MIR1120/MIR1122 microRNA precursor family: an 81-nucleotide sequence from Triticum turgidum. For this family Rfam cites "Cloning and characterization of microRNAs from wheat (Triticum aestivum L.)" (Yao et al., Genome Biol, 2007). Lineage of the source: Eukaryota > Spermatophyta > Mesangiospermae > Triticum > Triticum turgidum. The family's consensus secondary structure was predicted with RNAalifold.

RNA sequence: GUACUCCCUCUGUCCCAAAAUAUAAGAACGUUUUUAACUCGGAGUUAAAAACGUUCUUAUAUUUUGGGACAGAGGAAGUAG
Numbered sequence: 001g002u003a004c005u006c007c008c009u010c011u012g013u014c015c016c017a018a019a020a021u022a023u024a025a026g027a028a029c030g031u032u033u034u035u036a037a038c039u040c041g042g043a044g045u046u047a048a049a050a051a052c053g054u055u056c057u058u059a060u061a062u063u064u065u066g067g068g069a070c071a072g073a074g075g076a077a078g079u080a081g
Stems, first nucleotide, its partner, number of pairs: 003079003007075005013069005019063021